[Rfam]
Rfam assigns this 74-nucleotide RNA sequence from Rattus norvegicus to the family "Small nucleolar RNA SNORD113/SNORD114 family". Taxonomically the source falls in Rattus (Eukaryota, Eumetazoa, Tetrapoda, Euarchontoglires). The family's RNA type in Rfam is C/D-box small nucleolar RNA. A search with the family's covariance model found it, with a score of 49 bits. A reference for the family is Cavaille et al. (2002), "Identification of tandemly-repeated C/D snoRNA genes at the imprinted human 14q32 domain reminiscent of those at the Prader-Willi/Angelman syndrome region", Hum Mol Genet.

RNA sequence: CGGGCCAAUGAUGACAAGGUUUCGGGAUUAUUAGUCACAGACGAUGACUACAUCUCUAGCAGUCUGAGGUCCAC
Numbered sequence: 001c002g003g004g005c006c007a008a009u010g011a012u013g014a015c016a017a018g019g020u021u022u023c024g025g026g027a028u029u030a031u032u033a034g035u036c037a038c039a040g041a042c043g044a045u046g047a048c049u050a051c052a053u054c055u056c057u058a059g060c061a062g063u064c065u066g067a068g069g070u071c072c073a074c
Base pairs, nucleotide, nucleotide: 002072003071004070005069006068